[Rfam]
RNA sequence: AUCAAAAGCAUCAUCGAGUGCAGCGUUGAUGAGCUCCUACUACCGUAUUUCGGUAGCUGUAUCAAAAGUUCUGAGGAUCUCGCCAGCGCUGCAUUCGAUAAUGUCUUUG
Numbered sequence: 001a002u003c004a005a006a007a008g009c010a011u012c013a014u015c016g017a018g019u020g021c022a023g024c025g026u027u028g029a030u031g032a033g034c035u036c037c038u039a040c041u042a043c044c045g046u047a048u049u050u051c052g053g054u055a056g057c058u059g060u061a062u063c064a065a066a067a068g069u070u071c072u073g074a075g076g077a078u079c080u081c082g083c084c085a086g087c088g089c090u091g092c093a094u095u096c097g098a099u100a101a102u103g104u105c106u107u108u109g
Stems, first nucleotide, its partner, number of pairs: 006106001008104004013099016030082003
RNA: MIR397 microRNA precursor family
Organism: Cocos nucifera